[Rfam]
Background:
The record is a 103-nucleotide RNA sequence from Oleiagrimonas soli, which matches "SAH (S-adenosyl-L-homocysteine) riboswitch aptamer" in Rfam. For this family Rfam cites "Riboswitches that sense S-adenosylhomocysteine and activate genes involved in coenzyme recycling" (Wang et al., Mol Cell, 2008). Taxonomically the source falls in Oleiagrimonas (Bacteria, Pseudomonadota, Lysobacterales, Rhodanobacteraceae).
RNA sequence: UUGGCCGAGGGGCGUUGCGUCCCUGUGAAACGGUGUCGUUGUGUACGACCGCCGUGCUCGCAGGGUCAGGCUCGGCAUCCUUUUGCAACCGCGCCCAUCUCAA
Numbered sequence: 001u002u003g004g005c006c007g008a009g010g011g012g013c014g015u016u017g018c019g020u021c022c023c024u025g026u027g028a029a030a031c032g033g034u035g036u037c038g039u040u041g042u043g044u045a046c047g048a049c050c051g052c053c054g055u056g057c058u059c060g061c062a063g064g065g066u067c068a069g070g071c072u073c074g075g076c077a078u079c080c081u082u083u084u085g086c087a088a089c090c091g092c093g094c095c096c097a098u099c100u101c102a103a
Base pairs, nucleotide, nucleotide: 004076005075006074007073008072021065022064023063024062025061026060027059028058
Dot-bracket structure: ...(((((............((((((((.............................))))))))......)))))...........................